[Rfam]
Source information
Shown here is a 116-nucleotide RNA sequence from Angustibacter sp. Root456, a member of the family "SAM (S-adenosyl methionine) riboswitch aptamer". The family has 40 seed sequences and 2,360 matches in Rfam 15.1. From the family's description: SAM-IV is a mRNA element that regulates gene expression via direct sensing of S-adenosylmethionine (SAM or AdoMet). A search with the family's covariance model found it, with a score of 100 bits. The source organism's lineage runs through Bacteria, Actinomycetota, Kineosporiales, Kineosporiaceae and Angustibacter. Gene Ontology terms of the family: S-adenosylmethionine metabolic process and regulation of gene expression.
RNA sequence: GGUCAUGAGCGCCAGCGCCAAGCCCCGGCUCGCUGGCCGGCAACCCUCCUGCGCGGCGGGGUGCUCCGGGUGAGGACCAGGCGACGACGGACGCCCCGUCGCCGCAAGCGCGGACU
Numbered sequence: 001g002g003u004c005a006u007g008a009g010c011g012c013c014a015g016c017g018c019c020a021a022g023c024c025c026c027g028g029c030u031c032g033c034u035g036g037c038c039g040g041c042a043a044c045c046c047u048c049c050u051g052c053g054c055g056g057c058g059g060g061g062u063g064c065u066c067c068g069g070g071u072g073a074g075g076a077c078c079a080g081g082c083g084a085c086g087a088c089g090g091a092c093g094c095c096c097c098g099u100c101g102c103c104g105c106a107a108g109c110g111c112g113g114a115c116u
Stems, first nucleotide, its partner, number of pairs: 001078004009038001011037006021030002039065003044061003048056002081105003085101006
The family's consensus secondary structure is taken from published work.